[Rfam]
RNA sequence: UGUAUCAGCUGAUAGCUGCGAUAUAUUCGUAGAGGAAAGUCCGUGCUAGCACCGACUGCGAUGUUGGUAGUGUUCAUGUUAAGCCUAAUAAGCUUAAGCCUAGACGACUAGUGCCACAGAGACGAGAAUUGUGAAACGGGUAAACUCCAUGAGCUAGAAACCCAAAUUUGGUAGGGGAACUUUGAAUAGGAAUUGAACGAUUUCAAAGAAUAUUAUUAAAUAUUAGAUAAAUUAUCAGCGCAUUUUUAAUGUACAGAACACGGCUUAUAGAU
Numbered sequence: 001u002g003u004a005u006c007a008g009c010u011g012a013u014a015g016c017u018g019c020g021a022u023a024u025a026u027u028c029g030u031a032g033a034g035g036a037a038a039g040u041c042c043g044u045g046c047u048a049g050c051a052c053c054g055a056c057u058g059c060g061a062u063g064u065u066g067g068u069a070g071u072g073u074u075c076a077u078g079u080u081a082a083g084c085c086u087a088a089u090a091a092g093c094u095u096a097a098g099c100c101u102a103g104a105c106g107a108c109u110a111g112u113g114c115c116a117c118a119g120a121g122a123c124g125a126g127a128a129u130u131g132u133g134a135a136a137c138g139g140g141u142a143a144a145c146u147c148c149a150u151g152a153g154c155u156a157g158a159a160a161c162c163c164a165a166a167u168u169u170g171g172u173a174g175g176g177g178a179a180c181u182u183u184g185a186a187u188a189g190g191a192a193u194u195g196a197a198c199g200a201u202u203u204c205a206a207a208g209a210a211u212a213u214u215a216u217u218a219a220a221u222a223u224u225a226g227a228u229a230a231a232u233u234a235u236c237a238g239c240g241c242a243u244u245u246u247u248a249a250u251g252u253a254c255a256g257a258a259c260a261c262g263g264c265u266u267a268u269a270g271a272u
Base pairs, nucleotide, nucleotide: 004272005271006270007268008239009238010237011236012235013234014233016032017031018030019029020028021027037266038265039264041263042262043261044260045259046157047156048155049154050153051068052067053066054065055064056063074152075151076150077149078148079097080096081095082094083093084092098105099103106147107146111145112144113141114140115139161176162175163174180208181207182206183205184204185203186202209224210223211222212221213220214219241251242250243249
Dot-bracket structure: ...(((((((((((.((((((.....))))))....[[[.[[[[[(((((((((((......)))))).....(((((((((((.......))))))((...).)((...(((((.......................)))..))))))))))))))...(((..........)))...(((((((...............)))))))((((((....))))))........))))))).(((.....))).......]]]]]]]].).)))